Overview:
This 45-nucleotide RNA sequence belongs to the Rfam family "L31-Actinobacteria ribosomal protein leader". The family's consensus secondary structure is taken from published work. By type it is a cis-regulatory leader. It is one of the family's seed sequences.
RNA sequence: CUGGUUCCGGUUCACGUCCGUACCGUGCGGGCGACCCGGGGCACC
Numbered sequence: 001c002u003g004g005u006u007c008c009g010g011u012u013c014a015c016g017u018c019c020g021u022a023c024c025g026u027g028c029g030g031g032c033g034a035c036c037c038g039g040g041g042c043a044c045c
Stems, first nucleotide, its partner, number of pairs: 003045003007039004015033008